The family of this 104-nucleotide sequence from Halobacillus karajensis is "SAM riboswitch aptamer (S box leader)".
The match comes from Rfam's covariance-model search (91 bits).
RNA sequence: CUCUUAUUCAGAGUGGUGGAGGGACUGGCCCUAUGAAACCCGGCAACCGAUCUAUCCGAUGGCGGUGCUAAUUCCAGCAAAGCUAUGGCUUUGAAAAAUGAGAG
Numbered sequence: 001c002u003c004u005u006a007u008u009c010a011g012a013g014u015g016g017u018g019g020a021g022g023g024a025c026u027g028g029c030c031c032u033a034u035g036a037a038a039c040c041c042g043g044c045a046a047c048c049g050a051u052c053u054a055u056c057c058g059a060u061g062g063c064g065g066u067g068c069u070a071a072u073u074c075c076a077g078c079a080a081a082g083c084u085a086u087g088g089c090u091u092u093g094a095a096a097a098a099u100g101a102g103a104g
Stems, first nucleotide, its partner, number of pairs: 001104008013041001015040003021031003025077004042069004047065002050060003073096001078093006

Overview:
The organism belongs to Halobacillus, within Bacteria. Pairs were carried over by alignment from the consensus structure, which is taken from published work.